[Rfam]
RNA: Bacterial RNase P class A
RNA sequence: GAAGUAAGCUGGGCAAUCGCCGAUGCAGUGCCGAAAGGCCGCAUGGGAGGAAAGUCCGAGCUCCAUAGGGCAGGGUGCCGGAUAACGUCCGGCGGGAGCGAUCCUAGGGAUAGUGCCACAGAAAUGUAGACCGCCGAUGGCUCUCUUAAGGGUACAGGCAAGGUUGCAACGGUGCGGUAAGAGCGCACCAGCAGCUUGGAGACAAGCUGGCUAGGUAAACCCCACCUGGAGCAAGACCGCAUAGGAGUGCAAAUGUGGCUGCCCGUCACGCACUCGGGUAGGUUGCUUGAGCUGGCUGGCAACAGUCGGCCUAGAUAGAUGAUUGCUGCUCCACACGUGCGAGGCAUUUCUUUGAUUGUUUUGCACUUGACGAGAGUGCCGUUUGUAGCACCGGAGUACAGAACUCGGCUUACAGGCUUGCUUCUUGC
Numbered sequence: 001g002a003a004g005u006a007a008g009c010u011g012g013g014c015a016a017u018c019g020c021c022g023a024u025g026c027a028g029u030g031c032c033g034a035a036a037g038g039c040c041g042c043a044u045g046g047g048a049g050g051a052a053a054g055u056c057c058g059a060g061c062u063c064c065a066u067a068g069g070g071c072a073g074g075g076u077g078c079c080g081g082a083u084a085a086c087g088u089c090c091g092g093c094g095g096g097a098g099c100g101a102u103c104c105u106a107g108g109g110a111u112a113g114u115g116c117c118a119c120a121g122a123a124a125u126g127u128a129g130a131c132c133g134c135c136g137a138u139g140g141c142u143c144u145c146u147u148a149a150g151g152g153u154a155c156a157g158g159c160a161a162g163g164u165u166g167c168a169a170c171g172g173u174g175c176g177g178u179a180a181g182a183g184c185g186c187a188c189c190a191g192c193a194g195c196u197u198g199g200a201g202a203c204a205a206g207c208u209g210g211c212u213a214g215g216u217a218a219a220c221c222c223c224a225c226c227u228g229g230a231g232c233a234a235g236a237c238c239g240c241a242u243a244g245g246a247g248u249g250c251a252a253a254u255g256u257g258g259c260u261g262c263c264c265g266u267c268a269c270g271c272a273c274u275c276g277g278g279u280a281g282g283u284u285g286c287u288u289g290a291g292c293u294g295g296c297u298g299g300c301a302a303c304a305g306u307c308g309g310c311c312u313a314g315a316u317a318g319a320u321g322a323u324u325g326c327u328g329c330u331c332c333a334c335a336c337g338u339g340c341g342a343g344g345c346a347u348u349u350c351u352u353u354g355a356u357u358g359u360u361u362u363g364c365a366c367u368u369g370a371c372g373a374g375a376g377u378g379c380c381g382u383u384u385g386u387a388g389c390a391c392c393g394g395a396g397u398a399c400a401g402a403a404c405u406c407g408g409c410u411u412a413c414a415g416g417c418u419u420g421c422u423u424c425u426u427g428c
Stems, first nucleotide, its partner, number of pairs: 001424010011413001012327007020047002023044004028039001052411003056408005061231004068264004073227005078092005093107001094105004108222002113220002115216003131163002133159003138154002141151001171189006191211001192209007235284004245275006255269005291310008